[Rfam]
RNA sequence: UUAGAUUUUCUUAAUGUUCUUCUAGAAUUUUUCUCAGAUUUUUGUUGUUAAAGGUUGAUGGAGAUGAUAUGAAGAUGAAGAAGAGGAGAAA
Numbered sequence: 001u002u003a004g005a006u007u008u009u010c011u012u013a014a015u016g017u018u019c020u021u022c023u024a025g026a027a028u029u030u031u032u033c034u035c036a037g038a039u040u041u042u043u044g045u046u047g048u049u050a051a052a053g054g055u056u057g058a059u060g061g062a063g064a065u066g067a068u069a070u071g072a073a074g075a076u077g078a079a080g081a082a083g084a085g086g087a088g089a090a091a
Stems, first nucleotide, its partner, number of pairs: 006084007014076002017073003037056007
MIR5298 microRNA precursor family: a 91-nucleotide RNA from Medicago truncatula. It scores 72 bits against the family's covariance model. Pairs were carried over by alignment from the consensus structure, which was predicted with RNAalifold. NCBI's taxonomy places the organism under Eukaryota, Embryophyta, Spermatophyta, fabids, Medicago.